Rfam assigns this 122-nucleotide RNA sequence to the family "Small nucleolar RNA SNORA28". The sequence is in the family's curated seed alignment. ACA28 is a member of the H/ACA class of snoRNA that guide the sites of modification of uridines to pseudouridines. The family is grouped with related families in Rfam's "SNORA28 clan". For this family Rfam cites "RNomics: an experimental approach that identifies 201 candidates for novel, small, non-messenger RNAs in mouse" (Huttenhofer et al., EMBO J, 2001).

[Rfam]
RNA sequence: ACACUCUGUGGCAGAUGAACAAAACCGUCUGACACAAUUUGAGCUUGCUAUAGCAAGAAAGUCUAACCUAUUCCGGUGUUCUCUUUCCCCAUGAGACAAGCCGUUAUAUAGGCUCUAACAAA
Numbered sequence: 001a002c003a004c005u006c007u008g009u010g011g012c013a014g015a016u017g018a019a020c021a022a023a024a025c026c027g028u029c030u031g032a033c034a035c036a037a038u039u040u041g042a043g044c045u046u047g048c049u050a051u052a053g054c055a056a057g058a059a060a061g062u063c064u065a066a067c068c069u070a071u072u073c074c075g076g077u078g079u080u081c082u083c084u085u086u087c088c089c090c091a092u093g094a095g096a097c098a099a100g101c102c103g104u105u106a107u108a109u110a111g112g113c114u115c116u117a118a119c120a121a122a
Base pairs, nucleotide, nucleotide: 004043005042006041007036008035009034010033012031013030014029015028016027017026060114061113062112063111064110065109069108070107071106074103075102076101077100082096083095084094085093
Dot-bracket structure: ...(((((((.((((((........)))))).))))....)))................((((((...(((..((((....((((.......))))...))))..)))))))))........